Description: The record is a 208-nucleotide RNA from Halanaerobium salsuginis, which matches "Lysine riboswitch aptamer" in Rfam. Taxonomically the source falls in Halanaerobium (Bacteria, Bacillati, Clostridia, Halanaerobiaceae). Rfam describes the family as follows. Riboswitches are metabolite binding domains within certain messenger RNAs that serve as precision sensors for their corresponding targets.
RNA sequence: UGAUGAGGUAGAGGUGCGGUAAAAAUUAGUAAUCAUUAUAAUAGAAAUAAAACCAAAUUGCUGCUUUUAUAGAGUUUAGUUAAUGAGGAAAGGUUUUAUCGCCGAAGCAAUUGUUCAGCUGGUUUUCUGGAUAAUUUGCUGGGUCUGUAUAAAAUAUAUACAGGACUGUCAUUAUAAUUAUUAAUUAUAAUGUUGUGCUAUCUUAAAA
Numbered sequence: 001u002g003a004u005g006a007g008g009u010a011g012a013g014g015u016g017c018g019g020u021a022a023a024a025a026u027u028a029g030u031a032a033u034c035a036u037u038a039u040a041a042u043a044g045a046a047a048u049a050a051a052a053c054c055a056a057a058u059u060g061c062u063g064c065u066u067u068u069a070u071a072g073a074g075u076u077u078a079g080u081u082a083a084u085g086a087g088g089a090a091a092g093g094u095u096u097u098a099u100c101g102c103c104g105a106a107g108c109a110a111u112u113g114u115u116c117a118g119c120u121g122g123u124u125u126u127c128u129g130g131a132u133a134a135u136u137u138g139c140u141g142g143g144u145c146u147g148u149a150u151a152a153a154a155u156a157u158a159u160a161c162a163g164g165a166c167u168g169u170c171a172u173u174a175u176a177a178u179u180a181u182u183a184a185u186u187a188u189a190a191u192g193u194u195g196u197g198c199u200a201u202c203u204u205a206a207a208a
Stems, first nucleotide, its partner, number of pairs: 006203006016102009033086006106140004110135008141167002144164008170192006